Shown here is a 102-nucleotide RNA from Paenibacillus arenilitoris, a member of the family "pan motif". The source organism's lineage runs through Bacteria, Bacillota, Caryophanales, Paenibacillaceae and Paenibacillus.
[Rfam]
RNA sequence: CAGGCGGUAUUCGCUGCUGAAGCUGCACUGAUGAGGAACACAAUGAUGCAAAUGGUUGGCAAUGCACAUUCUGCUCUGAGCCGUAGGGACCGAGACAGAAGG
Numbered sequence: 001c002a003g004g005c006g007g008u009a010u011u012c013g014c015u016g017c018u019g020a021a022g023c024u025g026c027a028c029u030g031a032u033g034a035g036g037a038a039c040a041c042a043a044u045g046a047u048g049c050a051a052a053u054g055g056u057u058g059g060c061a062a063u064g065c066a067c068a069u070u071c072u073g074c075u076c077u078g079a080g081c082c083g084u085a086g087g088g089a090c091c092g093a094g095a096c097a098g099a100a101g102g
Base pairs, nucleotide, nucleotide: 001030002029003028004026005025006024007023008022010021011020071098072097073096074094075093076092078090081088082087

Source information
The match comes from Rfam's covariance-model search (40 bits).